[Rfam]
Nucleotides: 397
Base pairs, nucleotide, nucleotide: 052148054146055145056144057073058072059071060070061069062068090101105132106131107130108129109128111126112125176223177222178221181215182214183213184212186210187209188208190207193206194205195204197202244300245299246298247297248296249295250294251293253292254291255290258289259288261286262285263284266281267280268279269277270276302314304311305310322396323395324394325393332389333388334387335386336385337384351369352368353367354366356364357363
Number, partner (000 for none) and nucleotide at each position: 001000c002000c003000u004000c005000a006000c007000g008000g009000g010000a011000g012000g013000g014000a015000g016000c017000g018000c019000g020000g021000c022000c023000u024000g025000g026000g027000g028000u029000g030000c031000g032000g033000g034000u035000g036000c037000u038000g039000u040000g041000a042000g043000u044000g045000g046000u047000a048000c049000u050000g051000c052148g053000g054146u055145g056144u057073c058072g059071c060070g061069u062068g063000g064000a065000u066000g067000g068062c069061g070060c071059g072058u073057g074000c075000g076000g077000g078000c079000c080000g081000a082000g083000u084000g085000u086000g087000u088000g089000u090101g091000u092000g093000g094000g095000u096000g097000g098000a099000u100000g101090u102000g103000a104000g105132c106131g107130u108129g109128c110000g111126u112125g113000g114000g115000g116000c117000g118000u119000g120000c121000a122000a123000g124000g125112c126111g127000a128109g129108u130107g131106c132105g133000u134000g135000a136000c137000g138000c139000c140000c141000c142000c143000u144056a145055c146054g147000g148052c149000c150000c151000u152000c153000c154000c155000c156000c157000c158000g159000u160000c161000u162000a163000c164000a165000c166000c167000u168000u169000g170000a171000u172000c173000u174000u175000a176223u177222u178221u179000g180000a181215u182214c183213g184212g185000g186210u187209u188208g189000u190207g191000a192000c193206c194205c195204c196000a197202g198000c199000c200000c201000g202197c203000c204195g205194g206193g207190c208188c209187g210186g211000c212184c213183c214182g215181a216000g217000a218000u219000g220000a221178a222177a223176a224000g225000c226000u227000c228000c229000c230000c231000u232000c233000c234000u235000g236000c237000g238000a239000a240000g241000c242000c243000c244300g245299c246298u247297c248296c249295g250294g251293g252000c253292g254291c255290u256000g257000u258289g259288c260000a261286g262285c263284g264000a265000g266281g267280c268279c269277c270276u271000u272000g273000g274000g275000u276270g277269g278000c279268g280267g281266c282000g283000g284263c285262g286261c287000c288259g289258c290255g291254g292253u293251c294250c295249c296248g297247g298246a299245g300244c301000c302314g303000a304311u305310c306000u307000g308000c309000g310305g311304g312000g313000c314302c315000c316000g317000g318000c319000g320000c321000u322396c323395a324394g325393a326000a327000g328000u329000g330000a331000u332389g333388a334387a335386u336385u337384g338000a339000u340000c341000a342000g343000a344000u345000a346000g347000a348000c349000g350000a351369g352368g353367c354366c355000g356364g357363g358000c359000u360000u361000g362000u363357c364356c365000c366354g367353g368352c369351c370000g371000c372000u373000g374000a375000u376000u377000a378000u379000c380000g381000a382000g383000g384337c385336g386335a387334u388333u389332c390000u391000g392000a393325u394324c395323u396322g397000a